RNA sequence: CGGCACGUUGGGAGCCAUAACCCAUGGGCGGUAGCGUG
Number, nucleotide and partner (000 for none) at each position: 001c000002g000003g000004c000005a000006c000007g000008u000009u024010g023011g022012g021013a000014g000015c000016c000017a000018u000019a000020a000021c012022c011023c010024a009025u000026g000027g000028g000029c000030g000031g000032u000033a000034g000035c000036g000037u000038g000
RNA: JUMPstart RNA